Overview: Rfam assigns this 93-nucleotide RNA from Nyssa sinensis to the family "Small nucleolar RNA R64/Z200 family".

Nucleotides: 093
Base pairs, nucleotide, nucleotide: 001093002092003091004090005089006088007087047059048058049057050056
Number, partner (000 for none) and nucleotide at each position: 001093u002092u003091u004090c005089u006088g007087c008000a009000a010000u011000g012000a013000u014000g015000a016000u017000u018000a019000u020000g021000a022000a023000a024000c025000a026000a027000u028000u029000c030000g031000c032000a033000u034000g035000u036000c037000a038000g039000a040000c041000u042000u043000c044000a045000g046000a047059g048058a049057u050056u051000u052000u053000u054000a055000u056050a057049a058048u059047c060000u061000a062000u063000g064000a065000g066000a067000a068000g069000a070000a071000a072000u073000u074000u075000c076000a077000u078000g079000u080000u081000a082000u083000c084000u085000g086000a087007g088006c089005a090004g091003a092002a093001a
By type it is a C/D-box small nucleolar RNA. Gene Ontology terms of the family: RNA processing and nucleolus. For this family Rfam cites "Experimental RNomics: identification of 140 candidates for small non-messenger RNAs in the plant Arabidopsis thaliana" (Marker et al., Curr Biol, 2002). The source organism's lineage runs through Eukaryota, Streptophytina, Magnoliopsida, Cornales and Nyssa.